[Rfam]
RNA: c-di-AMP riboswitch aptamer (ydaO/yuaA leader)
RNA sequence: AGAGUAAGUCAGCCUAAUCCAACAAUUCACAGUAAGUAAUGUUGGAGCGGAGGAACCAAGUUUUGGGGCGUAUCUUUUAGAGAGUAGGCAGUUCAGAGUUACAAGAGCAAGGUGAUGAAACACCUAACUCAGCACUCAAAACUCAGCACUCUCACUAAGAAGGGCAACUCUCAGCCCUAGCCCGUCAGCUAACUUCGUAGGCAUUGAGAGGAGACUGA
Dot-bracket structure: ...........(((...(((((((...............)))))))((((((....((.....))(((.....(((................................................................................)))..((((........))))...))).........)))))).)))................